Background:
Shown here is a 101-nucleotide sequence from Sulfitobacter noctilucicola, a member of the family "TPP riboswitch aptamer (THI element)". The family has 115 seed sequences and 16,130 matches in Rfam 15.1. Lineage of the source: Bacteria > Alphaproteobacteria > Rhodobacterales > Roseobacteraceae > Sulfitobacter. The base pairs follow the family's consensus structure, which is taken from published work. It scores 69 bits against the family's covariance model.
RNA sequence: GAUCCUACCUCGGGGGACUCCAGUGGAGUUGAGAUUGCGUAAGCUGACCCGUUGAACCUGAACCGGUUAACACCGGCGGAGGGAAGGUCCGGGCAAUUCUC
Numbered sequence: 001g002a003u004c005c006u007a008c009c010u011c012g013g014g015g016g017a018c019u020c021c022a023g024u025g026g027a028g029u030u031g032a033g034a035u036u037g038c039g040u041a042a043g044c045u046g047a048c049c050c051g052u053u054g055a056a057c058c059u060g061a062a063c064c065g066g067u068u069a070a071c072a073c074c075g076g077c078g079g080a081g082g083g084a085a086g087g088u089c090c091g092g093g094c095a096a097u098u099c100u101c
Stems, first nucleotide, its partner, number of pairs: 007088004011051004016045001017029005037044002057082003063076004